[Rfam]
RNA: PyrR binding site
RNA sequence: AUUACCUUUUAAUGAAUGUCCAGAGAGGCAUGGAAGGGAUCGAAGAAUGGGUAAAGUCUACCCUUUUUUCCUCACACCUUCCUGCCCCUGGGAAGGUGUUUUUUUGU
Numbered sequence: 001a002u003u004a005c006c007u008u009u010u011a012a013u014g015a016a017u018g019u020c021c022a023g024a025g026a027g028g029c030a031u032g033g034a035a036g037g038g039a040u041c042g043a044a045g046a047a048u049g050g051g052u053a054a055a056g057u058c059u060a061c062c063c064u065u066u067u068u069u070c071c072u073c074a075c076a077c078c079u080u081c082c083u084g085c086c087c088c089u090g091g092g093a094a095g096g097u098g099u100u101u102u103u104u105u106g107u
Stems, first nucleotide, its partner, number of pairs: 003039001005037005016031005042070006049063005074099011